[Rfam]
RNA sequence: UCAACCGUGGUUCGCAAACCUCCCACGCAAAAAAAACUAAGGAACA
Number, nucleotide and partner (000 for none) at each position: 001u000002c000003a000004a000005c000006c027007g026008u025009g024010g023011u000012u000013c000014g000015c000016a038017a000018a000019c000020c000021u000022c000023c010024c009025a008026c007027g006028c000029a000030a000031a000032a000033a000034a000035a000036a000037c000038u016039a000040a000041g000042g000043a000044a000045c000046a000
The record is a 46-nucleotide sequence from Glaesserella parasuis, which matches "PreQ1 (pre queuosine) riboswitch aptamer" in Rfam.
About the family: This family is a bacterial riboswitch that binds to the metabolite preQ1, an intermediate in the biosynthesis of the modified nucleoside queuosine from GTP. One example of this riboswitch is located in the leader of the Bacillus subtilis ykvJKLM (queCDEF) operon which encodes four genes necessary for queuosine production. PreQ1 binding to the riboswitch aptamer is thought to induce premature transcription termination within the leader to down-regulate expression of these genes.
Taxonomically the source falls in Glaesserella parasuis (Bacteria, Gammaproteobacteria, Pasteurellales, Pasteurellaceae).
The match comes from Rfam's covariance-model search (54 bits).